The record is a 253-nucleotide sequence from Limnoraphis robusta, which matches "HNH endonuclease-associated RNA and ORF (HEARO) RNA" in Rfam. It is annotated as a non-coding RNA gene. A reference for the family is Weinberg et al. (2009), "Exceptional structured noncoding RNAs revealed by bacterial metagenome analysis", Nature. The family's consensus secondary structure is taken from published work. The source organism's lineage runs through Bacteria, Cyanobacteriota, Cyanophyceae, Limnoraphis and Limnoraphis robusta. A search with the family's covariance model found it, with a score of 135 bits.
RNA sequence: GUCAAGAACUCGCCGCUAAACCCUAUGCGCUUUUCGCGCAGCAGGCUUCGCCAACGGGUUAAGCGCGGGAGCUUGUAAAAAGGCUCUAACUUGACCAGACUCAGCCCUUUUUGGGGCUACGUUAUUUGGCUCACGAAACCCAUGAAUGCGUGCCAGUUUGCGGCUCUUUCGUACAGUUUUAAACAGGCGUAACGAGUUAAGCCAGUGAACUAUACCUAACAAGGCUAAAUAACAUUGUCGAGGCAAACUUUAC
Numbered sequence: 001g002u003c004a005a006g007a008a009c010u011c012g013c014c015g016c017u018a019a020a021c022c023c024u025a026u027g028c029g030c031u032u033u034u035c036g037c038g039c040a041g042c043a044g045g046c047u048u049c050g051c052c053a054a055c056g057g058g059u060u061a062a063g064c065g066c067g068g069g070a071g072c073u074u075g076u077a078a079a080a081a082g083g084c085u086c087u088a089a090c091u092u093g094a095c096c097a098g099a100c101u102c103a104g105c106c107c108u109u110u111u112u113g114g115g116g117c118u119a120c121g122u123u124a125u126u127u128g129g130c131u132c133a134c135g136a137a138a139c140c141c142a143u144g145a146a147u148g149c150g151u152g153c154c155a156g157u158u159u160g161c162g163g164c165u166c167u168u169u170c171g172u173a174c175a176g177u178u179u180u181a182a183a184c185a186g187g188c189g190u191a192a193c194g195a196g197u198u199a200a201g202c203c204a205g206u207g208a209a210c211u212a213u214a215c216c217u218a219a220c221a222a223g224g225c226u227a228a229a230u231a232a233c234a235u236u237g238u239c240g241a242g243g244c245a246a247a248c249u250u251u252a253c
Stems, first nucleotide, its partner, number of pairs: 001095006010071001013068002016065001072083003098239003103118005121233011136169002140163002143160005148249001151246001152244003171215003175211005183206002186203003190199003